Rfam assigns this 93-nucleotide RNA sequence from Physeter macrocephalus to the family "Small nucleolar RNA SNORD116". On this family, see Cavaille et al., Proc Natl Acad Sci U S A 2000: "Identification of brain-specific and imprinted small nucleolar RNA genes exhibiting an unusual genomic organization". Rfam classes the family as a C/D-box small nucleolar RNA. The organism belongs to Physeter, within Eukaryota.
RNA sequence: GGAUCGAUGAUGACACCCUUGUAUGCAUUCUUUGGAAAAUCUGAACAAAAUGAGUGAGAACCCUCUACCGUCUCCUCAUCGAAACCGAUGUCC
Dot-bracket structure: ((((.....................(((((.(((...........)))...))))).................................))))
Numbered sequence: 001g002g003a004u005c006g007a008u009g010a011u012g013a014c015a016c017c018c019u020u021g022u023a024u025g026c027a028u029u030c031u032u033u034g035g036a037a038a039a040u041c042u043g044a045a046c047a048a049a050a051u052g053a054g055u056g057a058g059a060a061c062c063c064u065c066u067a068c069c070g071u072c073u074c075c076u077c078a079u080c081g082a083a084a085c086c087g088a089u090g091u092c093c
Stems, first nucleotide, its partner, number of pairs: 001093004026056005032048003